[Rfam]
Nucleotides: 555
Stems, first nucleotide, its partner, number of pairs: 001555004007549003012505007020062005034050006073539005088320004098112005113129006131316007153301002507526006
Number, partner (000 for none) and nucleotide at each position: 001555a002554c003553a004552g005000c006000g007549c008548a009547a010000a011000a012505g013504c014503c015502g016501c017500g018499a019000g020062g021061c022060u023059c024058a025000c026000a027000u028000c029000g030000u031000a032000c033000a034050g035049g036048a037047c038046g039045u040000g041000u042000u043000g044000c045039g046038c047037g048036u049035c050034c051000g052000c053000c054000u055000u056000c057000g058024u059023g060022a061021g062020c063000g064000g065000g066000c067000u068000a069000a070000g071000g072000u073539c074538u075537g076536a077535g078000u079000a080000u081000c082000c083000c084000a085000g086000u087000c088320c089319c090318c091317c092000u093000c094000g095000a096000c097000c098112g099111g100110c101109c102108c103000u104000a105000g106000c107000a108102g109101g110100g111099c112098c113129c114128u115127g116126g117125c118124c119000u120000c121000a122000c123000a124118g125117g126116c127115u128114a129113g130000c131316g132315c133314g134313a135312c136311g137310u138000a139000u140000c141000a142000g143000a144000a145000a146000u147000a148000c149000c150000g151000c152000u153301g154300c155000a156000u157000c158000c159000c160000u161000c162000g163000a164000g165000c166000c167000c168000g169000a170000a171000g172000a173000a174000g175000g176000a177000g178000u179000a180000a181000u182000g183000u184000g185000c186000g187000c188000a189000c190000a191000c192000c193000g194000a195000u196000a197000u198000g199000g200000u201000a202000a203000c204000a205000a206000u207000a208000a209000g210000a211000c212000u213000u214000c215000g216000g217000c218000g219000g220000u221000a222000g223000u224000g225000c226000u227000g228000a229000g230000c231000u232000g233000c234000u235000g236000c237000c238000u239000g240000u241000g242000g243000g244000c245000g246000g247000g248000g249000u250000c251000c252000a253000a254000a255000c256000a257000u258000g259000g260000c261000g262000u263000g264000u265000c266000g267000g268000u269000c270000g271000u272000g273000a274000c275000a276000u277000a278000u279000g280000a281000a282000c283000c284000g285000g286000a287000g288000g289000g290000a291000u292000g293000g294000g295000g296000u297000g298000u299000a300154g301153c302000u303000u304000u305000g306000g307000g308000a309000c310137a311136c312135g313134u314133c315132g316131c317091g318090g319089g320088g321000a322000c323000a324000g325000a326000g327000c328000g329000g330000u331000c332000a333000u334000c335000u336000u337000g338000c339000u340000c341000g342000u343000a344000c345000g346000u347000c348000c349000u350000g351000g352000c353000u354000u355000c356000u357000u358000c359000u360000c361000g362000u363000c364000g365000u366000c367000g368000c369000a370000g371000u372000g373000c374000u375000c376000g377000g378000c379000u380000u381000c382000g383000g384000c385000u386000u387000g388000a389000g390000u391000g392000c393000g394000c395000a396000g397000a398000c399000g400000g401000a402000u403000g404000u405000g406000g407000c408000g409000g410000g411000g412000u413000g414000u415000c416000g417000g418000u419000g420000u421000c422000c423000u424000c425000g426000a427000a428000g429000g430000c431000a432000u433000c434000a435000a436000c437000u438000g439000c440000a441000u442000u443000g444000g445000a446000u447000g448000a449000c450000g451000a452000g453000a454000g455000u456000u457000g458000u459000u460000u461000a462000u463000g464000g465000c466000c467000a468000c469000u470000u471000u472000g473000c474000g475000u476000g477000g478000a479000u480000g481000u482000c483000u484000g485000c486000c487000c488000a489000u490000c491000a492000g493000u494000u495000c496000a497000c498000u499018u500017c501016g502015c503014g504013g505012c506000g507526c508525g509524c510523g511522a512521g513000g514000c515000u516000c517000g518000a519000u520000c521512c522511u523510c524509g525508c526507g527000a528000a529000a530000c531000u532000c533000g534000a535077u536076u537075c538074a539073g540000a541000c542000u543000a544000c545000u546000c547009u548008u549007g550000c551000g552004c553003u554002g555001u
Shown here is a 555-nucleotide RNA from Rhodofomes roseus, a member of the family "Nuclear RNase P". From the family's description: Ribonuclease P (RNase P) is a ubiquitous endoribonuclease, found in archaea, bacteria and eukarya as well as chloroplasts and mitochondria. Its best characterised activity is the generation of mature 5'-ends of tRNAs by cleaving the 5'-leader elements of precursor-tRNAs. Rfam 15.1 lists 3,848 matches to the family in 1,862 species. Clan: RNaseP clan.